[Rfam]
RNA sequence: GCUUCUUGAGAGCAAUUUCAGGAGUUCAUCGCACAGAAGUCAGCAGAGUCCAUAGUAGUUCUCUUAAGAACGAAGGGA
Numbered sequence: 001g002c003u004u005c006u007u008g009a010g011a012g013c014a015a016u017u018u019c020a021g022g023a024g025u026u027c028a029u030c031g032c033a034c035a036g037a038a039g040u041c042a043g044c045a046g047a048g049u050c051c052a053u054a055g056u057a058g059u060u061c062u063c064u065u066a067a068g069a070a071c072g073a074a075g076g077g078a
Stems, first nucleotide, its partner, number of pairs: 001027001004023008040047002049078003058071005
The family of this 78-nucleotide sequence from Stenomitos frigidus is "Group II catalytic intron D1-D4-1". The base pairs follow the family's consensus structure.